[Rfam]
RNA sequence: AGAGGGGCAGUAAUCAUUUUCUUGUUCCAUCAAGAGGGUGCUAUUGCUCCUUUCUUU
Numbered sequence: 001a002g003a004g005g006g007g008c009a010g011u012a013a014u015c016a017u018u019u020u021c022u023u024g025u026u027c028c029a030u031c032a033a034g035a036g037g038g039u040g041c042u043a044u045u046g047c048u049c050c051u052u053u054c055u056u057u
Base pairs, nucleotide, nucleotide: 001053002052003051004050005049006048007047008046009045010044011043012042014040019036020035021034022033023032024031
RNA: Plastid-psbA-3 3UTR RNA
Organism: Anisodus acutangulus